Rfam assigns this 179-nucleotide sequence from Medicago truncatula to the family "MIR2619 microRNA precursor family".
Rfam links the family to the GO terms miRNA-mediated post-transcriptional gene silencing and RISC complex.
RNA sequence: AAAUUGUCCCUUAAGUUUUGCAACUGUAGCAGUUUUAGUCCCCAAGGUCAAUUUUUGGUAAAAAAAUAAAAUAAAAUAACAGGUGACACCUCAUUUAGGGUGCCACGUCAGCGUAGACCGAGUCAAAAUUGGUCUUGGGGGCCAAAACUGCCACAAAUGCAAAACUUAGGGGGCGGUUU
Numbered sequence: 001a002a003a004u005u006g007u008c009c010c011u012u013a014a015g016u017u018u019u020g021c022a023a024c025u026g027u028a029g030c031a032g033u034u035u036u037a038g039u040c041c042c043c044a045a046g047g048u049c050a051a052u053u054u055u056u057g058g059u060a061a062a063a064a065a066a067u068a069a070a071a072u073a074a075a076a077u078a079a080c081a082g083g084u085g086a087c088a089c090c091u092c093a094u095u096u097a098g099g100g101u102g103c104c105a106c107g108u109c110a111g112c113g114u115a116g117a118c119c120g121a122g123u124c125a126a127a128a129u130u131g132g133u134c135u136u137g138g139g140g141g142c143c144a145a146a147a148c149u150g151c152c153a154c155a156a157a158u159g160c161a162a163a164a165c166u167u168a169g170g171g172g173g174c175g176g177u178u179u
Base pairs, nucleotide, nucleotide: 001179002178004176005175006174007173008172012168013167014166015165016164017163018162019161020160021159022158025155026154027153029151030150031149032148033147034146035145036144038142039141040140041139042138043137044136045135081108084105085104087102088101089100090099